[Rfam]
The record is an 82-nucleotide RNA from Drosophila melanogaster, which matches "mir-963 microRNA precursor family" in Rfam. Gene Ontology terms of the family: immune response, regulation of feeding behavior and miRNA-mediated post-transcriptional gene silencing. The base pairs follow the family's consensus structure, which was predicted with RNAalifold. Rfam's curators put it in the seed alignment. The source organism's lineage runs through Eukaryota, Aparaglossata, Ephydroidea, Drosophilinae and Sophophora. The family has 2 seed sequences and 3 matches in Rfam 15.1.
RNA sequence: GUCUAAUCUAAAACAAGGUAAAUAUCAGGUUGUUUCCUGUAUUCGAUCGAAACAUCUGUAUAUACCUUUGUUCCGAUUGGAC
Numbered sequence: 001g002u003c004u005a006a007u008c009u010a011a012a013a014c015a016a017g018g019u020a021a022a023u024a025u026c027a028g029g030u031u032g033u034u035u036c037c038u039g040u041a042u043u044c045g046a047u048c049g050a051a052a053c054a055u056c057u058g059u060a061u062a063u064a065c066c067u068u069u070g071u072u073c074c075g076a077u078u079g080g081a082c
Stems, first nucleotide, its partner, number of pairs: 001082008012072005017066004022061003026058005032053005